This 79-nucleotide RNA from Crocodylus porosus belongs to the Rfam family "Mammalian CPEB3 ribozyme". A search with the family's covariance model found it, with a score of 38 bits. Taxonomically the source falls in Crocodylus (Eukaryota, Chordata, Vertebrata, Dipnotetrapodomorpha).
RNA sequence: AUAACUGUCGUAGUGGCCAUAAUAGAAGCAUUCAUGUUGCAACUCCUGUCAGAUUCCAACAGAUCUGAUAAAUUCUGCC
Number, nucleotide and partner (000 for none) at each position: 001a000002u000003a000004a000005c000006u000007g000008u000009c000010g000011u000012a000013g046014u000015g044016g043017c000018c000019a000020u000021a000022a000023u077024a076025g075026a074027a073028g040029c039030a038031u000032u000033c000034a000035u000036g000037u000038u030039g029040c028041a000042a000043c016044u015045c000046c013047u000048g000049u000050c067051a066052g065053a064054u063055u062056c000057c000058a000059a000060c000061a000062g055063a054064u053065c052066u051067g050068a000069u000070a000071a000072a000073u027074u026075c025076u024077g023078c000079c000
Notes:
About the family: The mammalian CPEB3 ribozyme is a self cleaving RNA located in the second intron of the CPEB3 gene which belongs to a family of genes regulating messenger RNA polyadenylation. This ribozyme is highly conserved and found only in mammals. The CPEB3 ribozyme is structurally and biochemically related to the human hepatitis delta virus (HDV) ribozyme and the HDV ribozyme is proposed to have arisen from the human transcriptome. There is currently only one other known self cleaving ribozyme in mammals, the CoTC motif. The family's consensus secondary structure is taken from published work.